Notes: The family of this 96-nucleotide sequence from Vicingus serpentipes is "SAM-I/IV (S-adenosyl methionine) riboswitch aptamer". Rfam 15.1 lists 567 matches to the family in 508 species. Lineage of the source: Bacteria > Flavobacteriia > Flavobacteriales > Vicingaceae > Vicingus. A search with the family's covariance model found it, with a score of 48 bits.

RNA sequence: ACAAUGUAUCUUGAAUCUCUUUUUAAGAGAUACCAACCGAGCAAAAAAGCAACGGUGGUUUAGUAUACGGGCAGUCUGUCAAAAACAAUUAACCUC
Numbered sequence: 001a002c003a004a005u006g007u008a009u010c011u012u013g014a015a016u017c018u019c020u021u022u023u024u025a026a027g028a029g030a031u032a033c034c035a036a037c038c039g040a041g042c043a044a045a046a047a048a049g050c051a052a053c054g055g056u057g058g059u060u061u062a063g064u065a066u067a068c069g070g071g072c073a074g075u076c077u078g079u080c081a082a083a084a085a086c087a088a089u090u091a092a093c094c095u096c
Stems, first nucleotide, its partner, number of pairs: 006068004015031006032059003037055003041050002046090002070080004